[Rfam]
RNA: TPP riboswitch aptamer (THI element)
Organism: Actinocatenispora rupis
Nucleotides: 117
Stems, first nucleotide, its partner, number of pairs: 006105004011067004017027003034061005072097004078091004
Number, partner (000 for none) and nucleotide at each position: 001000g002000u003000a004000c005000a006105u007104c008103g009102a010000c011067a012066g013065g014064g015000g016000a017027g018026c019025g020000c021000a022000c023000g024000a025019c026018g027017c028000u029000g030000a031000g032000a033000g034061u035060g036059u037058g038057a039000u040000g041000c042000c043000g044000g045000a046000u047000u048000c049000g050000u051000u052000c053000c054000g055000g056000a057038u058037c059036a060035c061034a062000g063000a064014c065013c066012c067011u068000c069000g070000a071000a072097c073096c074095u075094g076000a077000u078091c079090u080089g081088g082000g083000u084000a085000a086000u087000g088081c089080c090079a091078g092000c093000g094075c095074a096073g097072g098000g099000a100000g101000u102009u103008c104007g105006g106000u107000u108000g109000g110000a111000u112000c113000u114000c115000a116000c117000g